The family of this 92-nucleotide RNA sequence from Vitreoscilla sp. C1 is "Neisseria metabolic switch regulator b (RcoF1/NgncR163)". Lineage of the source: Bacteria > Pseudomonadota > Betaproteobacteria > Neisseriaceae > Vitreoscilla.
RNA sequence: UCAUUGAGUGGUUGCAAUGACCUACUUAAUAGUUUCUCUUCUAUUUCUCCUUUGUAGACUUGGCGCACAUUUGAUUAAAUGUGCGCAUUUUU
Numbered sequence: 001u002c003a004u005u006g007a008g009u010g011g012u013u014g015c016a017a018u019g020a021c022c023u024a025c026u027u028a029a030u031a032g033u034u035u036c037u038c039u040u041c042u043a044u045u046u047c048u049c050c051u052u053u054g055u056a057g058a059c060u061u062g063g064c065g066c067a068c069a070u071u072u073g074a075u076u077a078a079a080u081g082u083g084c085g086c087a088u089u090u091u092u
Base pairs, nucleotide, nucleotide: 003030004029005028006027007026008025009024010023011022040058041057042056043055044054063086064085065084066083067082068081069080070079071078072077
The family has 6 seed sequences and 65 matches in Rfam 15.1. Rfam describes the family as follows. Sibling sRNA described and independently named in three publications. It scores 97 bits against the family's covariance model. A reference for the family is Bauer et al. (2017), "The sibling sRNAs NgncR_162 and NgncR_163 of Neisseria gonorrhoeae participate in the expression control of metabolic, transport and regulatory proteins", Microbiology. The base pairs follow the family's consensus structure, which was predicted with RNAfold.